[Rfam]
RNA sequence: AACAGAGUAGGCAAAUAUGCGUUAAGGUUUAGAGGACGGGAAGUUGUCUCUAAAAGAAAAGCUUAAAUUAAGUUUGCGAUAUAUUGCCGCAUUCCGCUGUU
Numbered sequence: 001a002a003c004a005g006a007g008u009a010g011g012c013a014a015a016u017a018u019g020c021g022u023u024a025a026g027g028u029u030u031a032g033a034g035g036a037c038g039g040g041a042a043g044u045u046g047u048c049u050c051u052a053a054a055a056g057a058a059a060a061g062c063u064u065a066a067a068u069u070a071a072g073u074u075u076g077c078g079a080u081a082u083a084u085u086g087c088c089g090c091a092u093u094c095c096g097c098u099g100u101u
Stems, first nucleotide, its partner, number of pairs: 001101005010088004015084005020078003028054008039094003043090001059075006

The record is a 101-nucleotide RNA sequence from Clostridium niameyense, which matches "THF (Tetrahydrofolate) riboswitch aptamer" in Rfam. Tetrahydrofolate (THF) riboswitch was first reported for Ames et al. as an RNA motif in 5' untranslated (5'-UTR)regions of folate transport and biosynthesis genes in Firmicutes genomes. For this family Rfam cites "A eubacterial riboswitch class that senses the coenzyme tetrahydrofolate" (Ames et al., Chem Biol, 2010).